[Rfam]
The record is a 435-nucleotide part of an RNA from Hominimerdicola alba, which matches "Bacterial large subunit ribosomal RNA" in Rfam. Gene Ontology terms of the family: ribosome and structural constituent of ribosome.
RNA sequence: CUCUCCGAAAUAGCUUUAGGGCUAGCCUCAUGACAGAUUACCGGAGGUAAAGCACUGAAUGGGCUAGGGGUCGAAAGAUUACUGAACCUUAUCAAACUAAGAAUGCCGGAUAAUCGAUUCAUGGGAGUCAGACUGUGUGAGAUAAGUCUCACAGUCAAAAGGGAAACAGCCCAGACCCACAGCUAAGGUCCCAAAGUACAUUUAAGUGGAAAAGGAUGUGGGGUUGCAUAAACAACCAGGAUGUUGGCUUAGAAGCAGCCACUCAUUAAAAGAGUGCGUAAUAGCUCACUGGUCGAGUGACCCUGCGCCGAAAAUUCAACGGGGCUAAAAUGUACACCGAAGCUUGGGAUUGUCAGUAAUGACAGUGGUAGGAGAGCGUCGAAUAAGGGGUGAAGUCAGAGCGGAAGCGCUGGUGGACUUUAUUCGAGUGAGAAU
Numbered sequence: 001c002u003c004u005c006c007g008a009a010a011u012a013g014c015u016u017u018a019g020g021g022c023u024a025g026c027c028u029c030a031u032g033a034c035a036g037a038u039u040a041c042c043g044g045a046g047g048u049a050a051a052g053c054a055c056u057g058a059a060u061g062g063g064c065u066a067g068g069g070g071u072c073g074a075a076a077g078a079u080u081a082c083u084g085a086a087c088c089u090u091a092u093c094a095a096a097c098u099a100a101g102a103a104u105g106c107c108g109g110a111u112a113a114u115c116g117a118u119u120c121a122u123g124g125g126a127g128u129c130a131g132a133c134u135g136u137g138u139g140a141g142a143u144a145a146g147u148c149u150c151a152c153a154g155u156c157a158a159a160a161g162g163g164a165a166a167c168a169g170c171c172c173a174g175a176c177c178c179a180c181a182g183c184u185a186a187g188g189u190c191c192c193a194a195a196g197u198a199c200a201u202u203u204a205a206g207u208g209g210a211a212a213a214g215g216a217u218g219u220g221g222g223g224u225u226g227c228a229u230a231a232a233c234a235a236c237c238a239g240g241a242u243g244u245u246g247g248c249u250u251a252g253a254a255g256c257a258g259c260c261a262c263u264c265a266u267u268a269a270a271a272g273a274g275u276g277c278g279u280a281a282u283a284g285c286u287c288a289c290u291g292g293u294c295g296a297g298u299g300a301c302c303c304u305g306c307g308c309c310g311a312a313a314a315u316u317c318a319a320c321g322g323g324g325c326u327a328a329a330a331u332g333u334a335c336a337c338c339g340a341a342g343c344u345u346g347g348g349a350u351u352g353u354c355a356g357u358a359a360u361g362a363c364a365g366u367g368g369u370a371g372g373a374g375a376g377c378g379u380c381g382a383a384u385a386a387g388g389g390g391u392g393a394a395g396u397c398a399g400a401g402c403g404g405a406a407g408c409g410c411u412g413g414u415g416g417a418c419u420u421u422a423u424u425c426g427a428g429u430g431a432g433a434a435u
Stems, first nucleotide, its partner, number of pairs: 001376006011024005026127001027125007035118001036115005041109004051098002056094003061089003067083002069080004131156007139148002161172003176348004181344003187338003196335007214309002218306010235293005241266003246260003267271001272287001276285002349366007377430001379427010395414005401408002